[Rfam]
RNA: Molybdenum/Tungsten riboswitch aptamer (Moco RNA motif)
RNA sequence: AUAAGUAUGUUUUUCCGAGCCGCAUGACCUAAGGGAGACUAUGGUUAUCGGCCUCACAGGGUACGCCGGGAAACUGCCGUGCCUCCCAUUGAGGAAAGGAAACAUAAGCUGCCGGAC
Number, nucleotide and partner (000 for none) at each position: 001a000002u000003a000004a110005g000006u108007a000008u000009g000010u000011u000012u102013u101014u100015c099016c098017g000018a000019g052020c051021c050022g049023c000024a000025u047026g046027a045028c044029c043030u000031a000032a000033g040034g039035g000036a000037g000038a000039c034040u033041a000042u000043g029044g028045u027046u026047a025048u000049c022050g021051g020052c019053c000054u000055c000056a000057c000058a000059g084060g083061g082062u081063a080064c079065g078066c000067c076068g075069g074070g000071a000072a000073a000074c069075u068076g067077c000078c065079g064080u063081g062082c061083c060084u059085c094086c093087c000088a000089u000090u000091g000092a000093g086094g085095a000096a000097a000098g016099g015100a014101a013102a012103c000104a000105u000106a000107a000108g006109c000110u004111g000112c000113c000114g000115g000116a000117c000